This 102-nucleotide RNA sequence from Listeria booriae belongs to the Rfam family "Purine riboswitch aptamer". NCBI's taxonomy places the organism under Bacteria, Bacillota, Bacilli, Caryophanales, Listeria.

RNA sequence: UGAGCUAAAAUAAGAAGAUGUCGUAUAUGUCUGGGAAUAGGGCCCGGACGUUUCUACUCAGCUACCGUAAAUGGCUGAACUACGAGCAAUAGCAUAUGCAGU
Numbered sequence: 001u002g003a004g005c006u007a008a009a010a011u012a013a014g015a016a017g018a019u020g021u022c023g024u025a026u027a028u029g030u031c032u033g034g035g036a037a038u039a040g041g042g043c044c045c046g047g048a049c050g051u052u053u054c055u056a057c058u059c060a061g062c063u064a065c066c067g068u069a070a071a072u073g074g075c076u077g078a079a080c081u082a083c084g085a086g087c088a089a090u091a092g093c094a095u096a097u098g099c100a101g102u
Stems, first nucleotide, its partner, number of pairs: 021085005029049007058078007

Pairs were carried over by alignment from the consensus structure, which is taken from published work.